[Rfam]
RNA sequence: CAUCGGUCACCGCCUAAUCGCCCAGUAGGGCGUACCGGGGAACCAUCCGUUUCGGAUCUCCGAAUUGGGGUGAAUCGCGUUGUGCUCGGCCUCGUGCUGAACGCUGCCGUGUGCAUCGCGUAGGGCCAUUCUUCCGGCCCGAACCCGACAGCUAACCCGGUCGGCGGUCGAGGGAGAGCAA
Numbered sequence: 001c002a003u004c005g006g007u008c009a010c011c012g013c014c015u016a017a018u019c020g021c022c023c024a025g026u027a028g029g030g031c032g033u034a035c036c037g038g039g040g041a042a043c044c045a046u047c048c049g050u051u052u053c054g055g056a057u058c059u060c061c062g063a064a065u066u067g068g069g070g071u072g073a074a075u076c077g078c079g080u081u082g083u084g085c086u087c088g089g090c091c092u093c094g095u096g097c098u099g100a101a102c103g104c105u106g107c108c109g110u111g112u113g114c115a116u117c118g119c120g121u122a123g124g125g126c127c128a129u130u131c132u133u134c135c136g137g138c139c140c141g142a143a144c145c146c147g148a149c150a151g152c153u154a155a156c157c158c159g160g161u162c163g164g165c166g167g168u169c170g171a172g173g174g175a176g177a178g179c180a181a
Base pairs, nucleotide, nucleotide: 011166012165013164014163019032020031021030022029023028034161035160036159037158038157039156044067045066068146069145070144076120077119078118079117123140124139125138126137
Shown here is a 181-nucleotide sequence from Gordonia rhizosphera, a member of the family "c-di-AMP riboswitch aptamer (ydaO/yuaA leader)". The match comes from Rfam's covariance-model search (89 bits).